A member of the RNA family "TPP riboswitch aptamer (THI element)" from Actinoplanes sp. ATCC 53533, 105 nucleotides long.
About the family: Vitamin B(1) in its active form thiamin pyrophosphate (TPP) is an essential coenzyme that is synthesised by coupling of pyrimidine and thiazole moieties in bacteria.

Nucleotides: 105
Stems, first nucleotide, its partner, number of pairs: 006093004011055004017027004034049005060085004066079004
Number, partner (000 for none) and nucleotide at each position: 001000c002000u003000u004000c005000a006093c007092c008091g009090a010000c011055a012054g013053g014052g015000g016000a017027g018026c019025g020024c021000g022000c023000a024020g025019c026018g027017c028000u029000g030000a031000g032000a033000g034049u035048g036047c037046g038045g039000g040000u041000g042000a043000c044000a045038c046037c047036g048035c049034a050000g051000a052014c053013c054012c055011u056000c057000g058000a059000a060085c061084c062083u063082g064000a065000u066079c067078u068077g069076g070000g071000u072000a073000a074000u075000g076069c077068c078067a079066g080000c081000g082063c083062a084061g085060g086000g087000a088000g089000c090009u091008c092007g093006g094000u095000c096000u097000u098000u099000c100000u101000c102000c103000a104000g105000c

The family's consensus secondary structure is taken from published work.
Rfam links the family to the GO term thiamine pyrophosphate binding.